[Rfam]
RNA sequence: CCCAGUUCCUAGGGGGGCCUUCAGGCUGAGAUUCGACAUCGCGUCGUGACCCUUCGAACCUGAUCCGGGUAAUACCGGCGAAGGGAAGGAAUCCCGCGCAUGA
Numbered sequence: 001c002c003c004a005g006u007u008c009c010u011a012g013g014g015g016g017g018c019c020u021u022c023a024g025g026c027u028g029a030g031a032u033u034c035g036a037c038a039u040c041g042c043g044u045c046g047u048g049a050c051c052c053u054u055c056g057a058a059c060c061u062g063a064u065c066c067g068g069g070u071a072a073u074a075c076c077g078g079c080g081a082a083g084g085g086a087a088g089g090a091a092u093c094c095c096g097c098g099c100a101u102g103a
Base pairs, nucleotide, nucleotide: 006091007090008089009088010087011053012052013051014050016047017026018025019024034046035045036044037043059084060083061082065078066077067076068075